Rfam assigns this 184-nucleotide RNA from Glaciecola punicea to the family "6S / SsrS RNA". It is annotated as a non-coding RNA gene. Lineage of the source: Bacteria > Pseudomonadota > Alteromonadales > Alteromonadaceae > Glaciecola punicea. The family's consensus secondary structure is taken from published work. Rfam describes the family as follows. E. coli 6S RNA was the first non coding RNA to be sequenced, but its function was unknown until recently. For this family Rfam cites "A highly conserved 6S RNA structure is required for regulation of transcription" (Trotochaud and Wassarman, Nat Struct Mol Biol, 2005).
[Rfam]
RNA sequence: UGCUUCCUGGAAUGUUUGCAUGUGCGUUUCAUGUUCCUGGCCGAUGCUAUAACCUAAGGAAGUUGACUCUAUUGCUAUUGCGCAAGCUCGACAUGUAUCGAGAAGCCUACGGCAGUGAUGAUACAUCCGCCGUGUCCUAUUCGGCACACGGACGAAAAACGUAAAGCGGCAUUUUGGGAAGCAC
Numbered sequence: 001u002g003c004u005u006c007c008u009g010g011a012a013u014g015u016u017u018g019c020a021u022g023u024g025c026g027u028u029u030c031a032u033g034u035u036c037c038u039g040g041c042c043g044a045u046g047c048u049a050u051a052a053c054c055u056a057a058g059g060a061a062g063u064u065g066a067c068u069c070u071a072u073u074g075c076u077a078u079u080g081c082g083c084a085a086g087c088u089c090g091a092c093a094u095g096u097a098u099c100g101a102g103a104a105g106c107c108u109a110c111g112g113c114a115g116u117g118a119u120g121a122u123a124c125a126u127c128c129g130c131c132g133u134g135u136c137c138u139a140u141u142c143g144g145c146a147c148a149c150g151g152a153c154g155a156a157a158a159a160c161g162u163a164a165a166g167c168g169g170c171a172u173u174u175u176g177g178g179a180a181g182c183a184c
Base pairs, nucleotide, nucleotide: 002182003181004180005179006178007177008176009175010174011173012172013171014170015169017168018167019166033153034152035151036150038148039147041144042143058128059127060126062124063123070117071116072115073114074113075112076111082106083105087102088101089100090099091098